[Rfam]
A member of the RNA family "MIR2912 microRNA precursor family" from Populus deltoides, 153 nucleotides long. Gene Ontology terms of the family: RISC complex and miRNA-mediated post-transcriptional gene silencing. The source organism's lineage runs through Eukaryota, Streptophyta, Spermatophyta, Magnoliopsida and Populus. Pairs were carried over by alignment from the consensus structure, which was predicted with RNAalifold.
Nucleotides: 153
Base pairs, nucleotide, nucleotide: 003151005149006148007147009143011142012141013140014139015138016137017136018135020133021131022130023129025127027126028125036119037118041117042116043115045113046110047109048108049107052103053102054101057098058097060096061095070086071085072084
Number, partner (000 for none) and nucleotide at each position: 001000u002000c003151u004000a005149g006148a007147a008000c009143u010000c011142g012141a013140g014139a015138u016137a017136u018135a019000a020133g021131c022130u023129g024000a025127a026000c027126a028125c029000c030000g031000a032000a033000u034000g035000u036119u037118g038000u039000c040000c041117g042116g043115g044000u045113c046110a047109g048108g049107a050000c051000a052103g053102a054101u055000u056000c057098g058097g059000a060096c061095u062000u063000c064000u065000u066000c067000a068000u069000u070086g071085u072084u073000g074000c075000u076000a077000c078000a079000a080000u081000u082000u083000g084072g085071a086070c087000u088000u089000g090000a091000a092000a093000a094000u095061g096060g097058c098057c099000u100000u101054g102053u103052u104000a105000a106000a107049u108048c109047u110046u111000a112000g113045g114000c115043u116042c117041c118037u119036a120000u121000g122000a123000a124000a125028g126027u127025u128000g129023u130022a131021g132000g133020c134000c135018u136017a137016u138015a139014u140013c141012u142011u143009a144000c145000c146000u147007u148006u149005c150000c151003a152000u153000u